[Rfam]
The record is a 70-nucleotide RNA from Alligator mississippiensis, which matches "Small nucleolar RNA SNORD27" in Rfam.
RNA sequence: GUUCUGUGAUGAAUAGAAAACAGACAAGCAUAUGGCUGAGUGUCCCUGAUGCCAGCUUCCUUCUGAGAAC
Numbered sequence: 001g002u003u004c005u006g007u008g009a010u011g012a013a014u015a016g017a018a019a020a021c022a023g024a025c026a027a028g029c030a031u032a033u034g035g036c037u038g039a040g041u042g043u044c045c046c047u048g049a050u051g052c053c054a055g056c057u058u059c060c061u062u063c064u065g066a067g068a069a070c
Stems, first nucleotide, its partner, number of pairs: 001070004

Rfam 15.1 lists 218 matches to the family in 175 species. Rfam links the family to the GO terms nucleolus and RNA processing. Rfam classes the family as a C/D-box small nucleolar RNA. The base pairs follow the family's consensus structure.